RNA sequence: UGGAAGUGAUGAAAUAGAGAUAAUUGGAUGUGCUGUUGAAUGAGUGUGUGUGAUAAACGGAAUUUAAAUCAAGUGGGGUGGGGUGUGGGGAGUGUGUGUGUGUGUGCAUGUAUAGAAGAGGCUUCAAAUGGGGGCACUGACAAUGCAGUGCUGAUUCCGGAGUGCAUCUGAGGCAUGUUGUUAAAUUCUGGGGUGCCACAUUGCAACAUUGCCGAUGAUUAAAGCCCAAAAGAAGCCCACCAAGAGAAGCCUGGGCAUCCUAAAUCUCUAACAGGUUCAUUAAUGAAAGUGAUCCUGUGAUCUGAUCUGA
Numbered sequence: 001u002g003g004a005a006g007u008g009a010u011g012a013a014a015u016a017g018a019g020a021u022a023a024u025u026g027g028a029u030g031u032g033c034u035g036u037u038g039a040a041u042g043a044g045u046g047u048g049u050g051u052g053a054u055a056a057a058c059g060g061a062a063u064u065u066a067a068a069u070c071a072a073g074u075g076g077g078g079u080g081g082g083g084u085g086u087g088g089g090g091a092g093u094g095u096g097u098g099u100g101u102g103u104g105u106g107c108a109u110g111u112a113u114a115g116a117a118g119a120g121g122c123u124u125c126a127a128a129u130g131g132g133g134g135c136a137c138u139g140a141c142a143a144u145g146c147a148g149u150g151c152u153g154a155u156u157c158c159g160g161a162g163u164g165c166a167u168c169u170g171a172g173g174c175a176u177g178u179u180g181u182u183a184a185a186u187u188c189u190g191g192g193g194u195g196c197c198a199c200a201u202u203g204c205a206a207c208a209u210u211g212c213c214g215a216u217g218a219u220u221a222a223a224g225c226c227c228a229a230a231a232g233a234a235g236c237c238c239a240c241c242a243a244g245a246g247a248a249g250c251c252u253g254g255g256c257a258u259c260c261u262a263a264a265u266c267u268c269u270a271a272c273a274g275g276u277u278c279a280u281u282a283a284u285g286a287a288a289g290u291g292a293u294c295c296u297g298u299g300a301u302c303u304g305a306u307c308u309g310a
Stems, first nucleotide, its partner, number of pairs: 001309004176208006183201001186195001188193001
A member of the RNA family "Small Cajal body-specific RNA 7" from Limosa lapponica, 310 nucleotides long.
The base pairs follow the family's consensus structure.
By type it is a small Cajal body RNA.